Record summary
Rfam assigns this 102-nucleotide RNA sequence from Mesobacillus zeae to the family "Purine riboswitch aptamer". The source organism's lineage runs through Bacteria, Bacillati, Caryophanales, Bacillaceae and Mesobacillus. Pairs were carried over by alignment from the consensus structure, which is taken from published work. It scores 83 bits against the family's covariance model.

[Rfam]
RNA sequence: CCAAACGAAUACAGCAUUCCUUGUAUAGGUUCAAGAAUAUGGCUUGAACGUUUCUACCAUGCUUCCGUAAAAUGCAUGUCUACAAGGGACAGAAUUUUUUGU
Numbered sequence: 001c002c003a004a005a006c007g008a009a010u011a012c013a014g015c016a017u018u019c020c021u022u023g024u025a026u027a028g029g030u031u032c033a034a035g036a037a038u039a040u041g042g043c044u045u046g047a048a049c050g051u052u053u054c055u056a057c058c059a060u061g062c063u064u065c066c067g068u069a070a071a072a073u074g075c076a077u078g079u080c081u082a083c084a085a086g087g088g089a090c091a092g093a094a095u096u097u098u099u100u101g102u
Base pairs, nucleotide, nucleotide: 018088019087020086021085022084023083024082025081029049030048031047032046033045034044035043058078059077060076061075062074064072